Record summary: A member of the RNA family "raiA RNA", 204 nucleotides long. Rfam's curators put it in the seed alignment. Pairs were carried over by alignment from the consensus structure, which is taken from published work. Rfam classes the family as a riboswitch.
[Rfam]
Nucleotides: 204
Stems, first nucleotide, its partner, number of pairs: 001204003005200005012195003015189005028175003031041001033091007050084002058076002063071002082182001103168005108118003122161004131153002137146003
Number, partner (000 for none) and nucleotide at each position: 001204c002203a003202u004000u005200a006199a007198c008197a009196g010000g011000u012195c013194u014193g015189u016188g017187g018186u019185u020000g021000a022000a023000a024000g025000u026000c027000g028175a029174u030173g031041c032000c033091a034090g035089u036088c037087g038086c039085a040000g041031g042000c043000a044000a045000a046000g047000c048000g049000a050084u051083c052000c053000a054000c055000g056000u057000a058076a059075g060000g061000u062000g063071u064070u065000u066000a067000a068000a069000a070064g071063a072000a073000u074000a075059c076058u077000g078000a079000g080000c081000a082182u083051g084050g085039u086038g087037c088036g089035g090034c091033u092000u093000a094000g095000a096000a097000g098000u099000a100000a101000g102000u103168c104167c105166u106165g107164c108118c109117g110116a111000g112000g113000a114000a115000a116110u117109c118108g119000a120000g121000a122161g123160g124159g125158u126000u127000a128000g129000u130000a131153g132152u133000g134000a135000g136000a137146g138145g139144c140000a141000a142000g143000u144139g145138c146137c147000g148000g149000a150000u151000a152132g153131c154000g155000a156000a157000c158125g159124c160123u161122c162000c163000a164107g165106c166105a167104g168103g169000c170000g171000g172000g173030u174029g175028u176000g177000g178000g179000g180000u181000c182082a183000a184000a185019a186018a187017c188016c189015a190000g191000g192000u193014c194013a195012g196009c197008u198007g199006u200005u201000u202003g203002u204001g